[Rfam]
RNA: Bacterial RNase P class A
RNA sequence: CGAGUAGACCAUGUGGCGGCGCGCGAGGCUCGAAAGGGCCCGCGUGAGGAAAGUCCGGGCUCCAUCGGGCAAGGGUAACUGCUAACGGCAGCCGAAGGCGACUUUAGGGAAAGUGCAACAGAAAGAAACCGCCGGGGUCCCCCCGGUAAGGAUGGAAAGGCGAGGUAAGAGCUCACCAGCGCACAGGAGACUGUGCGGCUCUGUAAACCCUACCCGGAGCAACACCGCACAGAGGGCAGAUGGGCGCCCGACCCGUCCUCGACAAGGUGGCUAGAGCUGCGCGGCGACGCGCAGUCGAGAUAGAUCGUCACACAUGACAGAACCCGGCUUAUGGUUUAGUCGCUUG
Number, nucleotide and partner (000 for none) at each position: 001c342002g341003a340004g000005u338006a337007g336008a335009c334010c333011a332012u312013g311014u310015g309016g308017c307018g306019g000020c046021g045022c044023g043024c042025g041026a000027g039028g000029c000030u000031c000032g000033a000034a000035a000036g000037g000038g000039c027040c000041c025042g024043c023044g022045u021046g020047a000048g000049g000050a000051a330052a329053g328054u000055c327056c326057g325058g324059g323060c219061u218062c217063c216064a000065u000066c000067g000068g000069g249070c000071a000072a000073g215074g214075g213076u212077a211078a000079c091080u090081g089082c088083u000084a000085a000086c000087g000088g082089c081090a080091g079092c000093c107094g105095a104096a103097g102098g000099c000100g000101a000102c097103u096104u095105u094106a000107g093108g210109g209110a000111a000112a000113g208114u207115g204116c203117a202118a000119c000120a000121g000122a000123a000124a000125g000126a000127a000128a000129c151130c150131g147132c146133c145134g144135g143136g142137g141138u000139c000140c000141c137142c136143c135144c134145g133146g132147u131148a000149a000150g130151g129152a000153u000154g000155g000156a000157a000158a000159g177160g176161c000162g174163a173164g172165g000166u000167a000168a000169g000170a000171g000172c164173u163174c162175a000176c160177c159178a000179g199180c197181g196182c195183a194184c193185a192186g191187g000188a000189g000190a000191c186192u185193g184194u183195g182196c181197g180198g000199c179200u000201c000202u117203g116204u115205a000206a000207a114208c113209c109210c108211u077212a076213c075214c074215c073216g063217g062218a061219g060220c000221a000222a000223c269224a268225c267226c266227g000228c000229a000230c000231a000232g260233a259234g258235g257236g256237c255238a000239g000240a000241u000242g000243g253244g252245c000246g000247c000248c000249c069250g000251a000252c244253c243254c000255g237256u236257c235258c234259u233260c232261g000262a000263c000264a000265a000266g226267g225268u224269g223270g000271c000272u000273a000274g000275a000276g295277c294278u293279g292280c291281g290282c289283g288284g000285c000286g000287a000288c283289g282290c281291g280292c279293a278294g277295u276296c000297g000298a000299g000300a000301u000302a000303g000304a000305u000306c018307g017308u016309c015310a014311c013312a012313c000314a000315u000316g000317a000318c000319a000320g000321a000322a000323c059324c058325c057326g056327g055328c053329u052330u051331a000332u011333g010334g009335u008336u007337u006338a005339g000340u003341c002342g001343c000344u000345u000346g000